[Rfam]
RNA: epsC RNA
RNA sequence: AGGACAUGUCUCCUGCUCCUUUAUCACCGGAGGCACUCGGCCAUGCUGUGGGCAUAGCGGCCUUAGACGUGAAUCGUCAAGGGUGUGGCGUGAGGAUGGGUUCGAUGCCCG
Numbered sequence: 001a002g003g004a005c006a007u008g009u010c011u012c013c014u015g016c017u018c019c020u021u022u023a024u025c026a027c028c029g030g031a032g033g034c035a036c037u038c039g040g041c042c043a044u045g046c047u048g049u050g051g052g053c054a055u056a057g058c059g060g061c062c063u064u065a066g067a068c069g070u071g072a073a074u075c076g077u078c079a080a081g082g083g084u085g086u087g088g089c090g091u092g093a094g095g096a097u098g099g100g101u102u103c104g105a106u107g108c109c110c111g
Stems, first nucleotide, its partner, number of pairs: 001020004007035007036094004040089008050063004066078004097111005